[Rfam]
RNA sequence: CCCCAGCAUCAAGAGUUGGGCUGGCGCCCAACACCAACCUGCCUUCCCGGGCAAGGUGGUGGUUCCGGUAACGGAACGAUGCGGCCUGAACCGGCAACUAUACGGGAACGA
Numbered sequence: 001c002c003c004c005a006g007c008a009u010c011a012a013g014a015g016u017u018g019g020g021c022u023g024g025c026g027c028c029c030a031a032c033a034c035c036a037a038c039c040u041g042c043c044u045u046c047c048c049g050g051g052c053a054a055g056g057u058g059g060u061g062g063u064u065c066c067g068g069u070a071a072c073g074g075a076a077c078g079a080u081g082c083g084g085c086c087u088g089a090a091c092c093g094g095c096a097a098c099u100a101u102a103c104g105g106g107a108a109c110g111a
Stems, first nucleotide, its partner, number of pairs: 006082005015032001017030005033060003038056003041052003045107005084095003
The record is a 111-nucleotide sequence from Skermanella aerolata, which matches "SAM-I/IV (S-adenosyl methionine) riboswitch aptamer" in Rfam. A search with the family's covariance model found it, with a score of 62 bits. The family's consensus secondary structure is taken from published work.